The record is a 60-nucleotide sequence from Ictalurus punctatus, which matches "mir-139 microRNA precursor family" in Rfam.

[Rfam]
RNA sequence: UCUACAGUGCAUGUGUCUCCAGUGUUUCUAUGGCGACUGGGGAGGCAGCGCUGUUGGAAU
Numbered sequence: 001u002c003u004a005c006a007g008u009g010c011a012u013g014u015g016u017c018u019c020c021a022g023u024g025u026u027u028c029u030a031u032g033g034c035g036a037c038u039g040g041g042g043a044g045g046c047a048g049c050g051c052u053g054u055u056g057g058a059a060u
Base pairs, nucleotide, nucleotide: 001058002057003056004054005053006052007051009049010048012047013046014045016043017042018041019040020039021038022037023036

Gene Ontology terms of the family: miRNA-mediated post-transcriptional gene silencing and RISC complex. Rfam's curators put it in the seed alignment.